[Rfam]
RNA sequence: UGUGUUUAUAUAGCCAAUAAUCGUAUAACGCCGGGGAUAGGGCCCGGCAGUUUCUACCUGAAAACCGUAAAUUUUCGGACUACGAGGGCUGAUCAUGGAUGC
Numbered sequence: 001u002g003u004g005u006u007u008a009u010a011u012a013g014c015c016a017a018u019a020a021u022c023g024u025a026u027a028a029c030g031c032c033g034g035g036g037a038u039a040g041g042g043c044c045c046g047g048c049a050g051u052u053u054c055u056a057c058c059u060g061a062a063a064a065c066c067g068u069a070a071a072u073u074u075u076c077g078g079a080c081u082a083c084g085a086g087g088g089c090u091g092a093u094c095a096u097g098g099a100u101g102c
Base pairs, nucleotide, nucleotide: 018088021085022084023083024082025081030048031047032046033045034044035043058078059077060076061075062074063073064072
A member of the RNA family "Purine riboswitch aptamer" from Paenibacillus yonginensis, 102 nucleotides long. About the family: Riboswitches are metabolite binding domains within certain messenger RNAs that serve as precision sensors for their corresponding targets.